[Rfam]
RNA sequence: AGUAUGCACUUAUUGUAUGUCGCUUUGGAUAAAAGCGUCUGCCAAAUGAAUGUAA
Numbered sequence: 001a002g003u004a005u006g007c008a009c010u011u012a013u014u015g016u017a018u019g020u021c022g023c024u025u026u027g028g029a030u031a032a033a034a035g036c037g038u039c040u041g042c043c044a045a046a047u048g049a050a051u052g053u054a055a
Base pairs, nucleotide, nucleotide: 014044015042016041017040021037022036023035024034025033026032

Shown here is a 55-nucleotide RNA sequence from Synaphobranchus kaupii, a member of the family "UnaL2 LINE 3' element". The family has 30 seed sequences and 493,311 matches in Rfam 15.1. The match comes from Rfam's covariance-model search (56 bits). By type it is a cis-regulatory element. The eel long interspersed element (LINE) UnaL2 and its partner short interspersed element (SINE) share a conserved 3' tail containing a stem-loop that is critical for their retrotransposition. Presumably, the first step of retrotransposition is the recognition of their 3' tails by UnaL2-encoded reverse transcriptase. The solution structure of a 17-nucleotide RNA derived from the 3' tail of UnaL2 was determined by NMR. The family's consensus secondary structure is taken from published work.